Shown here is a 174-nucleotide RNA from Yeguia hominis, a member of the family "Lysine riboswitch aptamer". A search with the family's covariance model found it, with a score of 88 bits.
RNA sequence: AAAUUGGAUAGAGGUUGCGAAACGGAUGAGUAUGCGCAGGCAAAACGUCAGGCCGGCGUUGCGCAGAAGGGCCUUUUCGCCGAAGCGGCGGUUUUUGCCUGAAAGAAGCCGUACGCUGGACUGCAGGAGAAAAUGCUGUAGGCUGUCACAAAUUUGUGGAGCGCUAUCGUGAUA
Numbered sequence: 001a002a003a004u005u006g007g008a009u010a011g012a013g014g015u016u017g018c019g020a021a022a023c024g025g026a027u028g029a030g031u032a033u034g035c036g037c038a039g040g041c042a043a044a045a046c047g048u049c050a051g052g053c054c055g056g057c058g059u060u061g062c063g064c065a066g067a068a069g070g071g072c073c074u075u076u077u078c079g080c081c082g083a084a085g086c087g088g089c090g091g092u093u094u095u096u097g098c099c100u101g102a103a104a105g106a107a108g109c110c111g112u113a114c115g116c117u118g119g120a121c122u123g124c125a126g127g128a129g130a131a132a133a134u135g136c137u138g139u140a141g142g143c144u145g146u147c148a149c150a151a152a153u154u155u156g157u158g159g160a161g162c163g164c165u166a167u168c169g170u171g172a173u174a
Stems, first nucleotide, its partner, number of pairs: 007168005017080006024073002033065007084117004088112008118144002121141006128134001146159005